Purine riboswitch aptamer: a 99-nucleotide RNA from Lactiplantibacillus mudanjiangensis.
Taxonomically the source falls in Lactiplantibacillus (Bacteria, Bacillati, Bacillota, Bacilli).
Pairs were carried over by alignment from the consensus structure, which is taken from published work.
The match comes from Rfam's covariance-model search (69 bits).
Rfam describes the family as follows. Riboswitches are metabolite binding domains within certain messenger RNAs that serve as precision sensors for their corresponding targets. Allosteric rearrangement of mRNA structure is mediated by ligand binding, and this results in modulation of gene expression. A class of riboswitches that selectively recognises guanine and becomes saturated at concentrations as low as 5 nM. In Bacillus subtilis, this mRNA motif is located on at least five separate transcriptional units that together encode 17 genes that are mostly involved in purine transport and purine nucleotide biosynthesis. It has also been shown that some members of this family are specific for adenine instead. Hence this family are termed purine riboswitches.
RNA sequence: AUUCAAAUACGAGUUAUUGCCUAUAUAAUGUCAUGAUAUGGAUGACGAGUUUCUACCCAGCGCCGUAAACGCUGGACUAUAAGCAAACGAGGCCAUCCC
Numbered sequence: 001a002u003u004c005a006a007a008u009a010c011g012a013g014u015u016a017u018u019g020c021c022u023a024u025a026u027a028a029u030g031u032c033a034u035g036a037u038a039u040g041g042a043u044g045a046c047g048a049g050u051u052u053c054u055a056c057c058c059a060g061c062g063c064c065g066u067a068a069a070c071g072c073u074g075g076a077c078u079a080u081a082a083g084c085a086a087a088c089g090a091g092g093c094c095a096u097c098c099c
Stems, first nucleotide, its partner, number of pairs: 018085003022081004029047006057075006